[Rfam]
RNA sequence: UGGUGGCCGCGGCCCUUUUCUUGUUGCCCUGCUGAGCCGCAGAGGGGCAGUGCAAUGUUAAAAGGGCAUCGGCCGCCA
Dot-bracket structure: ..(.(((((..((((((((..((((((.((..................)).))))))..))))))))..)))))..).
Rfam assigns this 78-nucleotide RNA from Sarcophilus harrisii to the family "mir-130 microRNA precursor family". Taxonomically the source falls in Sarcophilus (Eukaryota, Opisthokonta, Deuterostomia, Craniata).